Group II catalytic intron D1-D4-3: a 173-nucleotide RNA from Thermoactinomyces daqus.

RNA sequence: UCCGCCGCGAGGCGGAAUCCAAAGGAAGCCGGCGGCAAACCUCCGGCCCGAGGAACACGAACCUCAUACGAGGCCAGGCACCGUUGGAUGAGUCUGCGCAACAAGACAAAGUCCUUGCUGCCGAAGGCGGUGCAGGGUAAAUGAGGCGGGUGGAUGGAGGGGAAGGAUGUGCG
Numbered sequence: 001u002c003c004g005c006c007g008c009g010a011g012g013c014g015g016a017a018u019c020c021a022a023a024g025g026a027a028g029c030c031g032g033c034g035g036c037a038a039a040c041c042u043c044c045g046g047c048c049c050g051a052g053g054a055a056c057a058c059g060a061a062c063c064u065c066a067u068a069c070g071a072g073g074c075c076a077g078g079c080a081c082c083g084u085u086g087g088a089u090g091a092g093u094c095u096g097c098g099c100a101a102c103a104a105g106a107c108a109a110a111g112u113c114c115u116u117g118c119u120g121c122c123g124a125a126g127g128c129g130g131u132g133c134a135g136g137g138u139a140a141a142u143g144a145g146g147c148g149g150g151u152g153g154a155u156g157g158a159g160g161g162g163a164a165g166g167a168u169g170u171g172c173g
Stems, first nucleotide, its partner, number of pairs: 001016006030173002036165001040160006046151005062146006073138003078133006086114004092107004
About the family: Group II introns are found in rRNA, tRNA and mRNA of organelles in fungi, plants and protists, and also in mRNA in bacteria.